Rfam assigns this 166-nucleotide sequence from Paenibacillus sp. J31TS4 to the family "c-di-AMP riboswitch aptamer (ydaO/yuaA leader)".

RNA sequence: ACACUGAUACCGCCGAAGCCCCAAAAUUUUCUACCGAUUGGGGUGCGGGGGAACGACCUGUCCGGACCAAAAACCGGGCUAAGGGGUGAAUCCGGCUCGCGCCGGUAGGGAUGGCUCCUCAUUCCGAACCCGACAACUAACCUCGUAGGCGCCAUAAAAGGAGACU
Numbered sequence: 001a002c003a004c005u006g007a008u009a010c011c012g013c014c015g016a017a018g019c020c021c022c023a024a025a026a027u028u029u030u031c032u033a034c035c036g037a038u039u040g041g042g043g044u045g046c047g048g049g050g051g052a053a054c055g056a057c058c059u060g061u062c063c064g065g066a067c068c069a070a071a072a073a074c075c076g077g078g079c080u081a082a083g084g085g086g087u088g089a090a091u092c093c094g095g096c097u098c099g100c101g102c103c104g105g106u107a108g109g110g111a112u113g114g115c116u117c118c119u120c121a122u123u124c125c126g127a128a129c130c131c132g133a134c135a136a137c138u139a140a141c142c143u144c145g146u147a148g149g150c151g152c153c154a155u156a157a158a159a160g161g162a163g164a165c166u
Base pairs, nucleotide, nucleotide: 011151012150013149014148018044019043020042021041022040023039024038045146046145047144048143049142050141084131085130086129092105093104094103095102108125109124110123111122
About the family: This family represents a conserved RNA structure found upstream of the ydaO and yuaA genes in Bacillus subtilis and related genes in other bacteria.